[Rfam]
RNA sequence: AGAACCCAGUCCUCUUGGGUCCUGCGUCUGAACCCAAUACUUUUGGGUCCUGCAACAGGACCCAGUGCUCUUGGGUCUGGUGUUAGGACCUAAGGCUAUUGGGUCUU
Numbered sequence: 001a002g003a004a005c006c007c008a009g010u011c012c013u014c015u016u017g018g019g020u021c022c023u024g025c026g027u028c029u030g031a032a033c034c035c036a037a038u039a040c041u042u043u044u045g046g047g048u049c050c051u052g053c054a055a056c057a058g059g060a061c062c063c064a065g066u067g068c069u070c071u072u073g074g075g076u077c078u079g080g081u082g083u084u085a086g087g088a089c090c091u092a093a094g095g096c097u098a099u100u101g102g103g104u105c106u107u
Base pairs, nucleotide, nucleotide: 001107002106004104005103006102007101008100009099013095014094015093016092017091018090019089020088021087022086023085024084029079030078032076033075034074035073036072037071043065044064045063046062047061048060049059050058